Nuclear RNase P: a 324-nucleotide sequence from Mauremys mutica. A search with the family's covariance model found it, with a score of 93 bits. By type it is a ribozyme. Rfam's curators write: Ribonuclease P (RNase P) is a ubiquitous endoribonuclease, found in archaea, bacteria and eukarya as well as chloroplasts and mitochondria.

RNA sequence: ACAGGACUUCAGUCUCCAGAGUGGUCAAGUUACAUGCUGGGUGCUUGUCACCCAUUCCCAACAGCCUUGGGGAAGGUCUGAGACAAGAACCAAUCAGUGUCCUUGUAGGGCAUCACCUGAGACAGGUGUCCGAGUUUCCAGCCAGGCUGGGCCCUGAGUUGAGGGGGUGGGCAGAAGAGGUGAGCAGGGGGUCUCCUUCUUUAGGCAGAUGGCAAUUCCCUGGCCCAGUGAUUGGGACAGACCCAUGCCAGAAGCUCUGAGUUCUAUGGGCUGAGGUGAGGCCAGUGCCCCAAACAGACCUCAGAACCCAAUUCAGAUGUCUGU
Dot-bracket structure: ((((...[[[[.[[...........((((.........(((((.....)))))............))))........(((((.....((.(......(((((.....))))).(((((.....))))).(.(.(((............(((..................................................................))).))).).).).))..................................]]..]]]].(((((.................)))))........)))))....))))